[Rfam]
The record is a 78-nucleotide RNA sequence from Mystacornis crossleyi, which matches "mir-458 microRNA precursor family" in Rfam. The match comes from Rfam's covariance-model search (72 bits). The source organism's lineage runs through Eukaryota, Eumetazoa, Deuterostomia, Sarcopterygii and Mystacornis.
RNA sequence: GUGCCGACGGCAGCGCCAUUCCCGGAGCUAUCAACGGCGUCGUGCUCACAGCUCUUGGAAUGGUGCUGCCAUCAGUAC
Numbered sequence: 001g002u003g004c005c006g007a008c009g010g011c012a013g014c015g016c017c018a019u020u021c022c023c024g025g026a027g028c029u030a031u032c033a034a035c036g037g038c039g040u041c042g043u044g045c046u047c048a049c050a051g052c053u054c055u056u057g058g059a060a061u062g063g064u065g066c067u068g069c070c071a072u073c074a075g076u077a078c
Stems, first nucleotide, its partner, number of pairs: 002077003007072001009070001011068003015064007024055006031048001